FMN riboswitch aptamer (RFN element): a 183-nucleotide RNA sequence from Paenibacillus uliginis. The organism belongs to Paenibacillus uliginis, within Bacteria. The base pairs follow the family's consensus structure, which is taken from published work.
[Rfam]
RNA sequence: ACGAUCCUUCGGGGCAGGGUGAAAUUCCCUACCGGCGGUGAUGGACGUGGUGAAGAAGCGUAAAGCCUAUGCAAAAGCUUAUCACUGCGGACUUAGUCCGUGACCCGGAUAUACGUAAGUAUAUGCGGUGGACCUGGUGCAAAUCCGGGACCGACAGUAUAGUCUGGAUGGGAGAAGGAGAGA
Numbered sequence: 001a002c003g004a005u006c007c008u009u010c011g012g013g014g015c016a017g018g019g020u021g022a023a024a025u026u027c028c029c030u031a032c033c034g035g036c037g038g039u040g041a042u043g044g045a046c047g048u049g050g051u052g053a054a055g056a057a058g059c060g061u062a063a064a065g066c067c068u069a070u071g072c073a074a075a076a077g078c079u080u081a082u083c084a085c086u087g088c089g090g091a092c093u094u095a096g097u098c099c100g101u102g103a104c105c106c107g108g109a110u111a112u113a114c115g116u117a118a119g120u121a122u123a124u125g126c127g128g129u130g131g132a133c134c135u136g137g138u139g140c141a142a143a144u145c146c147g148g149g150a151c152c153g154a155c156a157g158u159a160u161a162g163u164c165u166g167g168a169u170g171g172g173a174g175a176a177g178g179a180g181a182g183a
Base pairs, nucleotide, nucleotide: 005179006178007177008176009175010174017029018028019027031163032162033153034152035101036100037099038098105128106127133149134148135147136146137145155166156165157164